[Rfam]
RNA sequence: ACAAUGAUACUUCCGUAAUUCGCGGCUCGGUCAUAAAGAAGACGGGCUGGCGGGUCAGCCGCCCCUGA
Numbered sequence: 001a002c003a004a005u006g007a008u009a010c011u012u013c014c015g016u017a018a019u020u021c022g023c024g025g026c027u028c029g030g031u032c033a034u035a036a037a038g039a040a041g042a043c044g045g046g047c048u049g050g051c052g053g054g055u056c057a058g059c060c061g062c063c064c065c066u067g068a
Stems, first nucleotide, its partner, number of pairs: 013025004027050002030047003052064003
Rfam assigns this 68-nucleotide RNA sequence from Faecalibacterium duncaniae to the family "pemK RNA". Rfam classes the family as a cis-regulatory element.